[Rfam]
RNA: Potassium channel RNA editing signal
RNA sequence: GUCGGUUACGGCGACAUGACGCCAAAAACCUUUCCAGGGAUGUUCAUAGGCGGACUAUGUGCCUUGACCGGUGUUCUUGCUAUCGCACUUCCGGUUCCCGUCAUCGUCAGCAAC
Numbered sequence: 001g002u003c004g005g006u007u008a009c010g011g012c013g014a015c016a017u018g019a020c021g022c023c024a025a026a027a028a029c030c031u032u033u034c035c036a037g038g039g040a041u042g043u044u045c046a047u048a049g050g051c052g053g054a055c056u057a058u059g060u061g062c063c064u065u066g067a068c069c070g071g072u073g074u075u076c077u078u079g080c081u082a083u084c085g086c087a088c089u090u091c092c093g094g095u096u097c098c099c100g101u102c103a104u105c106g107u108c109a110g111c112a113a114c
Base pairs, nucleotide, nucleotide: 001114002113004111008107009106010105011104013102014101015100018097019096021095022094037077038076039075040074049063050062051061